[Rfam]
RNA sequence: GAGCAAUGAUGAUUGCAGCGCUCAAGUGAAUAUAUAGGGUUCCUUACAAUCAUCUGAUUUUCAGACGAAAAGAUAGCGUUUCAGAGCUU
Numbered sequence: 001g002a003g004c005a006a007u008g009a010u011g012a013u014u015g016c017a018g019c020g021c022u023c024a025a026g027u028g029a030a031u032a033u034a035u036a037g038g039g040u041u042c043c044u045u046a047c048a049a050u051c052a053u054c055u056g057a058u059u060u061u062c063a064g065a066c067g068a069a070a071a072g073a074u075a076g077c078g079u080u081u082c083a084g085a086g087c088u089u
Base pairs, nucleotide, nucleotide: 001089002088003087004086
Dot-bracket structure: ((((.................................................................................))))
small nucleolar RNA snoR114: an 89-nucleotide sequence from Hibiscus syriacus. The family's RNA type in Rfam is C/D-box small nucleolar RNA. Taxonomically the source falls in Hibiscus (Eukaryota, Tracheophyta, Pentapetalae, Malvaceae). A reference for the family is Chen and Wu (2009), "Mining small RNA sequencing data: a new approach to identify small nucleolar RNAs in Arabidopsis", Nucleic Acids Res.